[Rfam]
RNA: c-di-GMP-I-GGC riboswitch aptamer
RNA sequence: UGCGAUAAAGCCAAACUCAUUGCGAAGUGAGGACGGAAAGCCACGGGUCUUGCGAUCAAGAUAGCCGGGUUGCCUGGA
Numbered sequence: 001u002g003c004g005a006u007a008a009a010g011c012c013a014a015a016c017u018c019a020u021u022g023c024g025a026a027g028u029g030a031g032g033a034c035g036g037a038a039a040g041c042c043a044c045g046g047g048u049c050u051u052g053c054g055a056u057c058a059a060g061a062u063a064g065c066c067g068g069g070u071u072g073c074c075u076g077g078a
Stems, first nucleotide, its partner, number of pairs: 001078001004074001011036002016031006034064001039071004044067003047062003